[Rfam]
RNA sequence: ACACGGGAGAGGAGGUGGUCCGACGUUGAAGAACGACAGGACUCGUGAGGUGUCCGUCAGCUAGUCGACGUCAGGUCGUGGAUUGGCCGGUGCCGCCCCCCGCGGGCGGACACGUCGACCGGUGAAUUCCCGAUGGACACCAGGCCCCCGGAGCGCCCGGAUCUCGUCCACCCGGGCCCCGCGGCAUCCCGCCGCGGGAAGCACGCUCCGGGGGUUUCCCGUC
Numbered sequence: 001a002c003a004c005g006g007g008a009g010a011g012g013a014g015g016u017g018g019u020c021c022g023a024c025g026u027u028g029a030a031g032a033a034c035g036a037c038a039g040g041a042c043u044c045g046u047g048a049g050g051u052g053u054c055c056g057u058c059a060g061c062u063a064g065u066c067g068a069c070g071u072c073a074g075g076u077c078g079u080g081g082a083u084u085g086g087c088c089g090g091u092g093c094c095g096c097c098c099c100c101c102g103c104g105g106g107c108g109g110a111c112a113c114g115u116c117g118a119c120c121g122g123u124g125a126a127u128u129c130c131c132g133a134u135g136g137a138c139a140c141c142a143g144g145c146c147c148c149c150g151g152a153g154c155g156c157c158c159g160g161a162u163c164u165c166g167u168c169c170a171c172c173c174g175g176g177c178c179c180c181g182c183g184g185c186a187u188c189c190c191g192c193c194g195c196g197g198g199a200a201g202c203a204c205g206c207u208c209c210g211g212g213g214g215u216u217u218c219c220c221g222u223c
Stems, first nucleotide, its partner, number of pairs: 014058005060123003064119002067116004142217013156198004
Rfam assigns this 223-nucleotide RNA sequence from Actinomycetospora sp. TBRC 11914 to the family "Actinobacteria sRNA Ms_IGR-5". Rfam classes the family as a small RNA. The pairing is the family consensus, mapped onto this sequence.